[Rfam]
RNA sequence: GAUGCUCGGCCCCACCUCCUCCCGGGGUUCGAGAUAUCGCGGCGGCACCGCUCCUCCUCCCUGGUGCCGCCGCAACCU
Numbered sequence: 001g002a003u004g005c006u007c008g009g010c011c012c013c014a015c016c017u018c019c020u021c022c023c024g025g026g027g028u029u030c031g032a033g034a035u036a037u038c039g040c041g042g043c044g045g046c047a048c049c050g051c052u053c054c055u056c057c058u059c060c061c062u063g064g065u066g067c068c069g070c071c072g073c074a075a076c077c078u
Base pairs, nucleotide, nucleotide: 003032005031008029009028010027011026012025013024040072041071042070043069044068045067046066047065048064049063
RNA: Conserved CCUCCUCCC motif stress-induced RNA 1